[Rfam]
RNA: Small nucleolar RNA U2-19
RNA sequence: GAUCAAUGAGAAAAAUAGCCAAAUCUGAGUAUCAGAAAACCUACAAGUCUCCCUGAUGUGUGAUCUUGGUUUCAGCUUAGG
Number, nucleotide and partner (000 for none) at each position: 001g000002a000003u000004c000005a000006a000007u000008g000009a000010g000011a000012a000013a000014a000015a000016u000017a000018g000019c000020c000021a000022a000023a000024u000025c000026u000027g000028a000029g059030u058031a057032u056033c055034a000035g000036a000037a050038a000039a048040c047041c000042u000043a000044c000045a000046a000047g040048u039049c000050u037051c000052c000053c000054u000055g033056a032057u031058g030059u029060g000061u000062g000063a000064u000065c000066u000067u000068g000069g000070u000071u000072u000073c000074a000075g000076c000077u000078u000079a000080g000081g000